[Rfam]
RNA sequence: GCGCCCUGCCACGUGAUCGUCUUCUCACCCUUCACGCAGGCAGGCGGCACAAGGAAGCCCCCGCGAGGACAUGCUCGCGGGGGCUUCCG
Numbered sequence: 001g002c003g004c005c006c007u008g009c010c011a012c013g014u015g016a017u018c019g020u021c022u023u024c025u026c027a028c029c030c031u032u033c034a035c036g037c038a039g040g041c042a043g044g045c046g047g048c049a050c051a052a053g054g055a056a057g058c059c060c061c062c063g064c065g066a067g068g069a070c071a072u073g074c075u076c077g078c079g080g081g082g083g084c085u086u087c088c089g
Stems, first nucleotide, its partner, number of pairs: 002046002005044006013035004019029001053088015
RNA: sodF sRNA